[Rfam]
RNA: Small nucleolar RNA SNORD60
Organism: Lepisosteus oculatus
RNA sequence: UGUUCGUGAUGAAUUAUUUCUUAUUUCUGACACUUCCAAUGAACAUACUGCCCAGCAGUCCUUGAUUUCACCUCAUGUUCUGAAGCAC
Numbered sequence: 001u002g003u004u005c006g007u008g009a010u011g012a013a014u015u016a017u018u019u020c021u022u023a024u025u026u027c028u029g030a031c032a033c034u035u036c037c038a039a040u041g042a043a044c045a046u047a048c049u050g051c052c053c054a055g056c057a058g059u060c061c062u063u064g065a066u067u068u069c070a071c072c073u074c075a076u077g078u079u080c081u082g083a084a085g086c087a088c
Base pairs, nucleotide, nucleotide: 001087002086003085004084045059048058049057050056051055